[Rfam]
RNA sequence: ACGUCUUCCCCUGGAGAGAGGCGGCCCUGCGAGGCCGUCCACCGAAGGAGCAAGCCGCACGCGCCGUGGAACAUCGCAUCCACGCCGGGCCGUGAAUCUCUCAGGUAAAGCGGACAGGGGCAAAAAC
Dot-bracket structure: .....(.((((((......((((((........)))))).(((((..(((...((....................................))....))))).)))........)))))).).....